[Rfam]
Nucleotides: 035
Stems, first nucleotide, its partner, number of pairs: 002021004010034003
Number, partner (000 for none) and nucleotide at each position: 001000a002021c003020a004019g005018a006000g007000g008000a009000a010034u011033c012032c013000g014000a015000a016000a017000a018005u019004c020003u021002g022000c023000g024000a025000c026000a027000g028000a029000g030000u031000a032012g033011g034010a035000g